[Rfam]
RNA sequence: UUCUUAUCAAGAGAAGCCGAGGGUACUGGCCCAUAGACGCUUCAGCAACCAGCCGGAUGGUCAGGUGCUAAAUCCAGCAGACGACUCAACGUCUGGAAGAUGAGAA
Numbered sequence: 001u002u003c004u005u006a007u008c009a010a011g012a013g014a015a016g017c018c019g020a021g022g023g024u025a026c027u028g029g030c031c032c033a034u035a036g037a038c039g040c041u042u043c044a045g046c047a048a049c050c051a052g053c054c055g056g057a058u059g060g061u062c063a064g065g066u067g068c069u070a071a072a073u074c075c076a077g078c079a080g081a082c083g084a085c086u087c088a089a090c091g092u093c094u095g096g097a098a099g100a101u102g103a104g105a106a
Base pairs, nucleotide, nucleotide: 001106002105003104004103005102006101007100008099013043014042015041016040017039021032022031023030026077027076028075029074044069045068046067047066049065050064052061053060054059073098078095079094080093081092082091083090
RNA: SAM riboswitch aptamer (S box leader)